[Rfam]
RNA sequence: AGCUUUGCGUAGUGGCAGUAUCGUAGCCAAUGAGGUUUAUCCGAGGCGCAAUUAUUGCUAAUUGAAAACUAAAUUAUAUAAAGUAUUUAGCAUGAUGCCAGGUACAAAAUGACAAUUCAAUAAAACUUAGCUCUAUAA
Numbered sequence: 001a002g003c004u005u006u007g008c009g010u011a012g013u014g015g016c017a018g019u020a021u022c023g024u025a026g027c028c029a030a031u032g033a034g035g036u037u038u039a040u041c042c043g044a045g046g047c048g049c050a051a052u053u054a055u056u057g058c059u060a061a062u063u064g065a066a067a068a069c070u071a072a073a074u075u076a077u078a079u080a081a082a083g084u085a086u087u088u089a090g091c092a093u094g095a096u097g098c099c100a101g102g103u104a105c106a107a108a109a110u111g112a113c114a115a116u117u118c119a120a121u122a123a124a125a126c127u128u129a130g131c132u133c134u135a136u137a138a
Base pairs, nucleotide, nucleotide: 020052021051023049024048026047027046028045034042035041083113084112086109087108088107090105092103093102127138128137129136

The family of this 138-nucleotide sequence from Neophocaena asiaeorientalis is "U4 spliceosomal RNA".